[Rfam]
RNA sequence: GCCGGUCCUCGGUAGUGGUCUCCGCCGAGCCAUGAGGGCUCCGGGGACUUCGAUCGAAGACCGGC
Numbered sequence: 001g002c003c004g005g006u007c008c009u010c011g012g013u014a015g016u017g018g019u020c021u022c023c024g025c026c027g028a029g030c031c032a033u034g035a036g037g038g039c040u041c042c043g044g045g046g047a048c049u050u051c052g053a054u055c056g057a058a059g060a061c062c063g064g065c
Stems, first nucleotide, its partner, number of pairs: 001065007009057005017049008027041005
Dot-bracket structure: (((((((.(((((...((((((((..(((((.....)))))))))))))...))))).)))))))
RNA: Actino-pnp RNA
Organism: Actinokineospora terrae